[Rfam]
RNA sequence: UGAAUCCGCGCGGGAGAGUCCCGGCACGCCGCGAGGCGGUGCCCGGGCGCCGAAGGAGCAAGUACCUCCCUUGAAUCUCUCAGGCCCCGUACCGCGUGGAUGAG
Numbered sequence: 001u002g003a004a005u006c007c008g009c010g011c012g013g014g015a016g017a018g019u020c021c022c023g024g025c026a027c028g029c030c031g032c033g034a035g036g037c038g039g040u041g042c043c044c045g046g047g048c049g050c051c052g053a054a055g056g057a058g059c060a061a062g063u064a065c066c067u068c069c070c071u072u073g074a075a076u077c078u079c080u081c082a083g084g085c086c087c088c089g090u091a092c093c094g095c096g097u098g099g100a101u102g103a104g
Base pairs, nucleotide, nucleotide: 006099007098008097009096010095011094012093013092020047021046022045023044049085050084051083052081053080056079057078058077062072

A member of the RNA family "Glycine riboswitch aptamer" from Streptomyces sp. ICC1, 104 nucleotides long.
Its family is annotated with glycine biosynthetic process in the Gene Ontology.
A search with the family's covariance model found it, with a score of 65 bits.
The base pairs follow the family's consensus structure.
About the family: This family represents the bacterial glycine riboswitch. Glycine riboswitches usually consist of two metabolite-binding aptamers domains with similar structures in tandem. The aptamers cooperatively bind glycine to regulate the expression of downstream genes. In Bacillus subtilis, this riboswitch is found upstream of the gcvT operon which controls glycine degradation.